[Rfam]
RNA sequence: CUGCAUCUAUUUGAUAUACUCACAACAGUUAAUGUCUACUGCUAAAGUUUCCACUACAGAUGCAAGAAAAAGUGUCCUCAUGCUGUCUGUCUGUCUGAUUGUGGCAGCCAAGAUUGAACGUUGGAAUACAGGA
Numbered sequence: 001c002u003g004c005a006u007c008u009a010u011u012u013g014a015u016a017u018a019c020u021c022a023c024a025a026c027a028g029u030u031a032a033u034g035u036c037u038a039c040u041g042c043u044a045a046a047g048u049u050u051c052c053a054c055u056a057c058a059g060a061u062g063c064a065a066g067a068a069a070a071a072g073u074g075u076c077c078u079c080a081u082g083c084u085g086u087c088u089g090u091c092u093g094u095c096u097g098a099u100u101g102u103g104g105c106a107g108c109c110a111a112g113a114u115u116g117a118a119c120g121u122u123g124g125a126a127u128a129c130a131g132g133a
Stems, first nucleotide, its partner, number of pairs: 002064007012053002016050001018048003023041002027037002075125003083116001086113003091107005
RNA: Small nucleolar RNA SNORA31
Organism: Equus asinus